RNA sequence: GUGGGUCUGGCUCCCAAAUCUUCGAUCUUGUGAGAUAUAUUCUCAAGCUCGGUUUUAUGGGUGCCGCAUCCAAC
Number, nucleotide and partner (000 for none) at each position: 001g074002u073003g000004g000005g000006u000007c000008u066009g065010g064011c063012u000013c061014c060015c059016a058017a000018a000019u000020c000021u000022u052023c051024g050025a049026u000027c047028u046029u045030g044031u000032g042033a041034g000035a000036u000037a000038u000039a000040u000041u033042c032043u000044c030045a029046a028047g027048c000049u025050c024051g023052g022053u000054u000055u000056u000057a000058u016059g015060g014061g013062u000063g011064c010065c009066g008067c000068a000069u000070c000071c000072a000073a002074c001

A member of the RNA family "mir-1473 microRNA precursor family" from Ciona savignyi, 74 nucleotides long. NCBI's taxonomy places the organism under Eukaryota, Chordata, Ascidiacea, Phlebobranchia, Ciona. It is one of the family's seed sequences.